[Rfam]
RNA sequence: CCUGGCCUUGCCAAAGUGCUGACAUUGCAGGUAGUGACGACUUAUCUUUCUACUGCAGUGCAAGCACUUGUAGCUGGGCCGU
Numbered sequence: 001c002c003u004g005g006c007c008u009u010g011c012c013a014a015a016g017u018g019c020u021g022a023c024a025u026u027g028c029a030g031g032u033a034g035u036g037a038c039g040a041c042u043u044a045u046c047u048u049u050c051u052a053c054u055g056c057a058g059u060g061c062a063a064g065c066a067c068u069u070g071u072a073g074c075u076g077g078g079c080c081g082u
Base pairs, nucleotide, nucleotide: 005079006078007077008076010074011073014069015068016067017066018065019064020063023060024059025058026057027056028055030054031053032052033051034050
This 82-nucleotide RNA from Petromyzon marinus belongs to the Rfam family "mir-17 microRNA precursor family". The base pairs follow the family's consensus structure, which was predicted with RNAalifold. About the family: This family represents the microRNA (miRNA) precursor mir-17, family, which includes mir-20, mir-91, and mir-103. miRNAs are transcribed as ~70nt precursors (modelled here) and subsequently processed by the Dicer enzyme to give a ~22nt product. The organism belongs to Petromyzon, within Eukaryota. The literature on the family includes a 2001 paper in Cell by Ambros, "microRNAs: tiny regulators with great potential".